[Rfam]
Purine riboswitch aptamer: a 102-nucleotide RNA from Clostridium thermosuccinogenes. Its Rfam clan is "Purine riboswitches". Lineage of the source: Bacteria > Bacillota > Eubacteriales > Clostridiaceae > Clostridium. The family's consensus secondary structure is taken from published work.
RNA sequence: AAACUAAAUAUUGCGAAACCUCAUAUAAUUUCGGAAAUACGGUCCGAGAGUUUCUACCAAACAACCGUAAAUUGUUUGACUAUGAGUGAGACUGGUUAAUGC
Numbered sequence: 001a002a003a004c005u006a007a008a009u010a011u012u013g014c015g016a017a018a019c020c021u022c023a024u025a026u027a028a029u030u031u032c033g034g035a036a037a038u039a040c041g042g043u044c045c046g047a048g049a050g051u052u053u054c055u056a057c058c059a060a061a062c063a064a065c066c067g068u069a070a071a072u073u074g075u076u077u078g079a080c081u082a083u084g085a086g087u088g089a090g091a092c093u094g095g096u097u098a099a100u101g102c
Stems, first nucleotide, its partner, number of pairs: 020086006029049007058078007